[Rfam]
RNA: Bacterial RNase P class A
RNA sequence: GGAGUCGGUCGGACGGCCGCGGCGGGGCAACCCGUCGAGGAAAGUCCGGACUCCACAGGGCAGGACGCCGGGUAACUCCCGGGCGCAGUGAUGCGUGGAAAGUGCAGCAGAGAGCAGACCGCCAGCGGCCCGGGAAACCGGGUGCGGGUAAGGGUGAAAGGGUGCGGUAAGAGCGCACCGGCGUCGGCGGCAACGUCGGCGGCCAGGCAUACCCCGUCCGGAGCAAGGCCAAGCAGGUGCGACGAGGCUGCCCGCCGAGCACCGGGUAGGCCGCAUCGAGGUCGACGGAGACGUCGGCCCCAGACAGAUGGUCGUCCCCGACAGAAUCCGGCUUACAGACCGGCUCCCUCC
Numbered sequence: 001g002g003a004g005u006c007g008g009u010c011g012g013a014c015g016g017c018c019g020c021g022g023c024g025g026g027g028c029a030a031c032c033c034g035u036c037g038a039g040g041a042a043a044g045u046c047c048g049g050a051c052u053c054c055a056c057a058g059g060g061c062a063g064g065a066c067g068c069c070g071g072g073u074a075a076c077u078c079c080c081g082g083g084c085g086c087a088g089u090g091a092u093g094c095g096u097g098g099a100a101a102g103u104g105c106a107g108c109a110g111a112g113a114g115c116a117g118a119c120c121g122c123c124a125g126c127g128g129c130c131c132g133g134g135a136a137a138c139c140g141g142g143u144g145c146g147g148g149u150a151a152g153g154g155u156g157a158a159a160g161g162g163u164g165c166g167g168u169a170a171g172a173g174c175g176c177a178c179c180g181g182c183g184u185c186g187g188c189g190g191c192a193a194c195g196u197c198g199g200c201g202g203c204c205a206g207g208c209a210u211a212c213c214c215c216g217u218c219c220g221g222a223g224c225a226a227g228g229c230c231a232a233g234c235a236g237g238u239g240c241g242a243c244g245a246g247g248c249u250g251c252c253c254g255c256c257g258a259g260c261a262c263c264g265g266g267u268a269g270g271c272c273g274c275a276u277c278g279a280g281g282u283c284g285a286c287g288g289a290g291a292c293g294u295c296g297g298c299c300c301c302a303g304a305c306a307g308a309u310g311g312u313c314g315u316c317c318c319c320g321a322c323a324g325a326a327u328c329c330g331g332c333u334u335a336c337a338g339a340c341c342g343g344c345u346c347c348c349u350c351c
Base pairs, nucleotide, nucleotide: 001347002346003345004344005343006342007341008340009339010338011336012316013315014314015313016312017311018310020037021036022035023034024033025032026031042334043333044332046331047330048329049328050327051223052222053221054220058253059252060251061250063219064218065217066216067215068082069081070080071079072078083096084095085094086093087092097214098213102212103211104208105207119153120152121149122148123147125145126144127143129141161179162178163177164176165175166174181203182201183200184199185198186197187196188195189194227272228271229270230269236263237262238261239260240259246256247255248254280299281298282297283296284295285294286293287292